Shown here is a 70-nucleotide RNA from Carnobacterium antarcticum, a member of the family "Fluoride riboswitch aptamer (crcB RNA motif)".
[Rfam]
RNA sequence: AAGUAAAUAGGCGAUGGUGUUCGCCCUUAACUAUCAUAGUAAGUUUAUGAUUAAUGACGCCUACUUAAGA
Numbered sequence: 001a002a003g004u005a006a007a008u009a010g011g012c013g014a015u016g017g018u019g020u021u022c023g024c025c026c027u028u029a030a031c032u033a034u035c036a037u038a039g040u041a042a043g044u045u046u047a048u049g050a051u052u053a054a055u056g057a058c059g060c061c062u063a064c065u066u067a068a069g070a
Base pairs, nucleotide, nucleotide: 010025011024012023013022016061017060018059019058020057021056033051034050035049036048037047038046039045